[Rfam]
RNA sequence: AAGUAGUGUGACAUGCCCGCUUUGGUGUUAAACUCUGAUGUUAUAUUUGUUAUUUAAUUGCUUUGGGGUAACGGGGUGUUACACCAAC
Number, nucleotide and partner (000 for none) at each position: 001a000002a000003g000004u086005a000006g084007u083008g082009u081010g080011a079012c078013a077014u076015g000016c075017c074018c073019g072020c000021u071022u070023u000024g000025g000026u000027g000028u000029u000030a000031a000032a000033c000034u000035c000036u000037g000038a000039u000040g000041u000042u000043a000044u000045a000046u000047u000048u000049g000050u000051u000052a000053u000054u000055u000056a000057a000058u000059u000060g000061c000062u000063u000064u000065g000066g000067g000068g000069u000070a022071a021072c019073g018074g017075g016076g014077u013078g012079u011080u010081a009082c008083a007084c006085c000086a004087a000088c000
Annotation:
Shown here is an 88-nucleotide RNA sequence from Medicago truncatula, a member of the family "MIR2617 microRNA precursor family". Gene Ontology terms of the family: RISC complex and miRNA-mediated post-transcriptional gene silencing. The source organism's lineage runs through Eukaryota, Streptophytina, Embryophyta, Fabales and Medicago.